mir-658 microRNA precursor family: a 101-nucleotide RNA sequence from Oryctolagus cuniculus.
[Rfam]
RNA sequence: GCUCCGUUGCCGUGGUUGCAGGCCCGGCCCGCUCGCUUGCUCGCUGACAGCGAGGCUUGGGGCGGAGGGAAGUGGGUCCGUUGGCCCGAUCGGUAACGAGG
Numbered sequence: 001g002c003u004c005c006g007u008u009g010c011c012g013u014g015g016u017u018g019c020a021g022g023c024c025c026g027g028c029c030c031g032c033u034c035g036c037u038u039g040c041u042c043g044c045u046g047a048c049a050g051c052g053a054g055g056c057u058u059g060g061g062g063c064g065g066a067g068g069g070a071a072g073u074g075g076g077u078c079c080g081u082u083g084g085c086c087c088g089a090u091c092g093g094u095a096a097c098g099a100g101g
Base pairs, nucleotide, nucleotide: 002100003099004098007096008095010093011092012091013088014086015085016084018081019080021078022077023076024075025072028069029068030067033065034064035063036062037061039056040054042052043051044050045049
Its family is annotated with miRNA-mediated post-transcriptional gene silencing and RISC complex in the Gene Ontology.